The record is a 114-nucleotide RNA from Gadus morhua, which matches "Potassium channel RNA editing signal" in Rfam. About the family: This family represents a group of sequences related to the human potassium channel Kv1.1 hairpin element which directs the efficient modification of an adenosine to inosine by an adenosine deaminase acting on RNA (ADAR). The ADAR modification causes an isoleucine/valine recoding event which lies in the ion-conducting pore of the potassium channel. It is thought that this editing event targets the process of fast inactivation and allows a more rapid recovery from inactivation at negative potentials. The base pairs follow the family's consensus structure, which is taken from published work.
Nucleotides: 114
Stems, first nucleotide, its partner, number of pairs: 001114001005110001007108005013102003018097002021094001037077002040074001049063002
Number, partner (000 for none) and nucleotide at each position: 001114g002000c003000c004000a005110g006000c007108u008107a009106c010105g011104g012000g013102g014101a015100c016000a017000u018097g019096g020000u021094u022000c023000c024000c025000a026000a027000c028000a029000c030000c031000a032000u033000c034000g035000c036000u037077g038076g039000g040074a041000a042000g043000a044000u045000c046000u047000u048000c049063g050062g051000c052000u053000c054000c055000a056000u057000c058000u059000g060000c061000u062050c063049u064000c065000u066000g067000a068000g069000c070000g071000g072000a073000g074040u075000g076038c077037u078000g079000g080000u081000g082000a083000u084000c085000g086000c087000u088000c089000u090000g091000c092000c093000u094021g095000u096019c097018c098000c099000c100015g101014u102013c103000a104011u105010c106009g107008u108007g109000u110005c111000c112000a113000a114001c